[Rfam]
RNA sequence: UUUCGUGAGCUUAAGUAGAUUCUAUUUGGCUAUGUUUAAUUAUUCAAGCCGGAUUGAGUUUACUUAUUCUUACGACAG
Numbered sequence: 001u002u003u004c005g006u007g008a009g010c011u012u013a014a015g016u017a018g019a020u021u022c023u024a025u026u027u028g029g030c031u032a033u034g035u036u037u038a039a040u041u042a043u044u045c046a047a048g049c050c051g052g053a054u055u056g057a058g059u060u061u062a063c064u065u066a067u068u069c070u071u072a073c074g075a076c077a078g
Stems, first nucleotide, its partner, number of pairs: 001077001003075007012066011024054002027051005033046002